Notes:
Rfam assigns this 70-nucleotide RNA to the family "mir-147 microRNA precursor family".
[Rfam]
Nucleotides: 070
Base pairs, nucleotide, nucleotide: 001062002061003060004059005058006057007056008055010053011052012051013050014049015048016047017046018045019044020043021042024041025040
Number, partner (000 for none) and nucleotide at each position: 001062u002061a003060g004059u005058g006057g007056a008055a009000u010053c011052a012051u013050u014049u015048c016047u017046g018045c019044a020043c021042a022000a023000a024041c025040u026000u027000g028000a029000c030000u031000a032000c033000u034000g035000a036000a037000a038000u039000c040025a041024g042021u043020g044019u045018g046017c047016g048015g049014a050013a051012a052011u053010g054000c055008u056007u057006c058005u059004g060003c061002u062001a063000c064000a065000u066000u067000u068000u069000u070000a